RNA sequence: GGAUGCAGAGCAAAAGUCUGCGCCCGCUGGUGCUCGCACCUAUUCGGGCGGAUGACCUUGGCACAUGCCCUGAGAUGAGCAUAAAAGAGAAGUGCAAACUUCUCGAUAUGCGAAUCUCCGGGAUGGAUUGCGAGAGUGCAUUGCACGGAGCAAUCCAUAGAAUCA
Numbered sequence: 001g002g003a004u005g006c007a008g009a010g011c012a013a014a015a016g017u018c019u020g021c022g023c024c025c026g027c028u029g030g031u032g033c034u035c036g037c038a039c040c041u042a043u044u045c046g047g048g049c050g051g052a053u054g055a056c057c058u059u060g061g062c063a064c065a066u067g068c069c070c071u072g073a074g075a076u077g078a079g080c081a082u083a084a085a086a087g088a089g090a091a092g093u094g095c096a097a098a099c100u101u102c103u104c105g106a107u108a109u110g111c112g113a114a115u116c117u118c119c120g121g122g123a124u125g126g127a128u129u130g131c132g133a134g135a136g137u138g139c140a141u142u143g144c145a146c147g148g149a150g151c152a153a154u155c156c157a158u159a160g161a162a163u164c165a
Stems, first nucleotide, its partner, number of pairs: 002164003006160001008064001010062002014058001016056003019052001021050006029040004069121002072118005079111004087104007125156007136146004
RNA: Clostridiales-1 RNA